RNA: SAM riboswitch aptamer (S box leader)
Organism: Natribacillus halophilus
RNA sequence: UUCUUAUCAAGAGAGACGGAGGGAAAGGCCCGAAGAUGUCUCAGCAACCAGCUCUUUCGAGUCAGGUGCUACUUCCUUCGGAACGACCAUGGUUCCGAAAGAUAAGAG
Number, nucleotide and partner (000 for none) at each position: 001u108002u107003c106004u105005u104006a103007u102008c101009a000010a000011g000012a000013g042014a041015g040016a039017c038018g000019g000020a000021g031022g030023g029024a000025a078026a077027g076028g075029c023030c022031c021032g000033a000034a000035g000036a000037u000038g017039u016040c015041u014042c013043a070044g069045c068046a067047a000048c066049c065050a000051g062052c061053u060054c059055u000056u000057u000058c000059g054060a053061g052062u051063c000064a000065g049066g048067u046068g045069c044070u043071a000072c000073u000074u100075c028076c027077u026078u025079c097080g096081g095082a094083a093084c092085g000086a000087c000088c000089a000090u000091g000092g084093u083094u082095c081096c080097g079098a000099a000100a074101g008102a007103u006104a005105a004106g003107a002108g001